[Rfam]
RNA sequence: GCUGACUCGAGCUGCCCGUGCAAAACUGGAACCUCUGCGUUGUUUUGUUCGUUCGGCUCGAGUUAGGA
Numbered sequence: 001g002c003u004g005a006c007u008c009g010a011g012c013u014g015c016c017c018g019u020g021c022a023a024a025a026c027u028g029g030a031a032c033c034u035c036u037g038c039g040u041u042g043u044u045u046u047g048u049u050c051g052u053u054c055g056g057c058u059c060g061a062g063u064u065a066g067g068a
Base pairs, nucleotide, nucleotide: 002066003065005063006062007061008060009059010058011057012056013055017051018050020048021047022046023045025043026042
Rfam assigns this 68-nucleotide RNA from Haemaphysalis longicornis to the family "mir-375 microRNA precursor family". A reference for the family is Chen et al. (2005), "The developmental miRNA profiles of zebrafish as determined by small RNA cloning", Genes Dev. Pairs were carried over by alignment from the consensus structure, which was predicted with RNAalifold. Gene Ontology terms of the family: RISC complex and miRNA-mediated post-transcriptional gene silencing.